[Rfam]
RNA: Guanidine-I riboswitch aptamer
RNA sequence: AUAAUAGCUUUCUAGGGUUCCGCAAUUAAACUAUAAUUGGACUGGUCCGAGAGAAAGCCACAUUGAUUAGUGUGACACGGAAGGAUAAAAGCCUGGGAGAU
Numbered sequence: 001a002u003a004a005u006a007g008c009u010u011u012c013u014a015g016g017g018u019u020c021c022g023c024a025a026u027u028a029a030a031c032u033a034u035a036a037u038u039g040g041a042c043u044g045g046u047c048c049g050a051g052a053g054a055a056a057g058c059c060a061c062a063u064u065g066a067u068u069a070g071u072g073u074g075a076c077a078c079g080g081a082a083g084g085a086u087a088a089a090a091g092c093c094u095g096g097g098a099g100a101u
Stems, first nucleotide, its partner, number of pairs: 007058006015048002020045002022042001023039006059074006076096001078099001082094003